RNA: mir-182 microRNA precursor family
RNA sequence: CACAGUGUUUGGCAAUGGUAGAACUCACUCCGGUGGGCUAGAAGGAUCUGGUAGUUCUAGAAUUGCCAACAACUGAC
Numbered sequence: 001c002a003c004a005g006u007g008u009u010u011g012g013c014a015a016u017g018g019u020a021g022a023a024c025u026c027a028c029u030c031c032g033g034u035g036g037g038c039u040a041g042a043a044g045g046a047u048c049u050g051g052u053a054g055u056u057c058u059a060g061a062a063u064u065g066c067c068a069a070c071a072a073c074u075g076a077c
Base pairs, nucleotide, nucleotide: 003075004074005073006072009069010068011067012066013065014064015063019059020058021057022056023055024054030051031050032049033048
Dot-bracket structure: ..((((..(((((((...((((((.....((((..............))))..))))))...)))))))..))))..